[Rfam]
RNA sequence: UAGGCAGAUUCCGAAAAGCCUUGUAGAGAGUAGGAA
Dot-bracket structure: .((((....[[[.....))))...........]]].
Numbered sequence: 001u002a003g004g005c006a007g008a009u010u011c012c013g014a015a016a017a018g019c020c021u022u023g024u025a026g027a028g029a030g031u032a033g034g035a036a
Stems, first nucleotide, its partner, number of pairs: 002021004010035003
DUF805b RNA: a 36-nucleotide sequence. The base pairs follow the family's consensus structure, which is taken from published work. By type it is a cis-regulatory element. The sequence is in the family's curated seed alignment.